[Rfam]
The record is a 58-nucleotide sequence from Camphora micrantha, which matches "Plastid-psbA-3 3UTR RNA" in Rfam. NCBI's taxonomy places the organism under Eukaryota, Tracheophyta, Magnoliidae, Laurales, Camphora. It is annotated as a cis-regulatory element. The literature on the family includes a 2023 paper in Plant Commun by Richter et al., "Retrograde signaling in plants: A critical review focusing on the GUN pathway and beyond". About the family: Plastid psbA-3 is a non-coding RNA (ncRNA) present in plastids. It was identified in inverted repeat sequences in the 3 prime untranslate region (3UTR) of photosystem II quinone-binding protein (psbA).

RNA sequence: AAUGGAUCAAUACCAAACUUCUUGUUCUAUUAAGAAGUUUGGUAUUGAUCCUUUAACG
Numbered sequence: 001a002a003u004g005g006a007u008c009a010a011u012a013c014c015a016a017a018c019u020u021c022u023u024g025u026u027c028u029a030u031u032a033a034g035a036a037g038u039u040u041g042g043u044a045u046u047g048a049u050c051c052u053u054u055a056a057c058g
Base pairs, nucleotide, nucleotide: 001054002053004051005050006049007048008047009046010045011044012043013042014041019036020035021034022033023032024031